SAM riboswitch aptamer (S box leader): a 117-nucleotide RNA sequence from Sporolactobacillus inulinus.
A search with the family's covariance model found it, with a score of 77 bits.
The source organism's lineage runs through Bacteria, Bacilli, Sporolactobacillaceae, Sporolactobacillus and Sporolactobacillus inulinus.
RNA sequence: GAUCUAUCCAGAGUGAUGGAGGGACUGGCCCGAUGACAUCCGGCAACCUGCACAGAUUCGUUUUCUCUGUAAGGUGCUAAUUCCAGCAAAAUGGUCAACCAUUUUGAAAGAUAGGAA
Numbered sequence: 001g002a003u004c005u006a007u008c009c010a011g012a013g014u015g016a017u018g019g020a021g022g023g024a025c026u027g028g029c030c031c032g033a034u035g036a037c038a039u040c041c042g043g044c045a046a047c048c049u050g051c052a053c054a055g056a057u058u059c060g061u062u063u064u065c066u067c068u069g070u071a072a073g074g075u076g077c078u079a080a081u082u083c084c085a086g087c088a089a090a091a092u093g094g095u096c097a098a099c100c101a102u103u104u105u106g107a108a109a110g111a112u113a114g115g116a117a
Stems, first nucleotide, its partner, number of pairs: 003115006013041001015040003021031003025086004042078004047074002049071004082109001087106006